Shown here is a 67-nucleotide RNA from Bombyx mori, a member of the family "mir-2774 microRNA precursor family".
RNA sequence: GUAAUAUUCGGAUCGUCGGUCUAUUGAGAGAUUACACCCGCUCUGUAGAAGAUCUUGCCUUUGUCGU
Numbered sequence: 001g002u003a004a005u006a007u008u009c010g011g012a013u014c015g016u017c018g019g020u021c022u023a024u025u026g027a028g029a030g031a032u033u034a035c036a037c038c039c040g041c042u043c044u045g046u047a048g049a050a051g052a053u054c055u056u057g058c059c060u061u062u063g064u065c066g067u
Base pairs, nucleotide, nucleotide: 004064005063006062010058012056015053016052017051020049021048022047023046024045026043027042028041
The base pairs follow the family's consensus structure, which was predicted with RNAalifold. The literature on the family includes a 2010 paper in BMC Genomics by Liu et al., "MicroRNAs of Bombyx mori identified by Solexa sequencing".